Shown here is a 104-nucleotide RNA sequence from Haemophilus influenzae, a member of the family "sxy 5' UTR element". The family's RNA type in Rfam is cis-regulatory element.
[Rfam]
RNA sequence: UUCUACUGACUCUUUUAAAAUAAUUAUUCAUUGGAGGUUUAAUAUGAAUAUAAAGGAUGAGCAUAUAGAGAGCGUUUGCUCUUUGUUAGAUCGGUUAGUAGGAA
Number, nucleotide and partner (000 for none) at each position: 001u103002u102003c101004u100005a099006c098007u097008g096009a095010c094011u093012c000013u000014u090015u089016u088017a087018a086019a000020a000021u000022a000023a000024u000025u050026a049027u048028u047029c046030a045031u044032u000033g000034g000035a000036g000037g000038u000039u000040u000041a000042a000043u000044a031045u030046g029047a028048a027049u026050a025051u000052a000053a084054a083055g082056g081057a080058u078059g077060a076061g075062c074063a000064u000065a000066u000067a000068g000069a000070g000071a000072g000073c000074g062075u061076u060077u059078g058079c000080u057081c056082u055083u054084u053085g000086u018087u017088a016089g015090a014091u000092c000093g011094g010095u009096u008097a007098g006099u005100a004101g003102g002103a001104a000
The base pairs follow the family's consensus structure, which is taken from published work.